[Rfam]
RNA sequence: GAUGGUUGGCCCUUCGGCGUCGCCCUGCGGGGGGAGGCGUCAAACCGCCCACUGCUGCGUUAGCUGACGACUGUCGUGGUGAGCGAUGUGGGAAACGGCGCCCGGUUGAGGCGUCAGGU
Dot-bracket structure: ((.((.....)).))((((((.((((....)))).))))))....(.((((((((.(((.(((.......))).))).)).....).)))))....((((((.......))))))..).
Group II catalytic intron D1-D4-2: a 119-nucleotide sequence from Lipingzhangella halophila. Rfam links the family to the GO term Group II intron splicing. The match comes from Rfam's covariance-model search (96 bits). The pairing is the family consensus, mapped onto this sequence. The literature on the family includes a 2001 paper in Trends Genet by Bonen and Vogel, "The ins and outs of group II introns".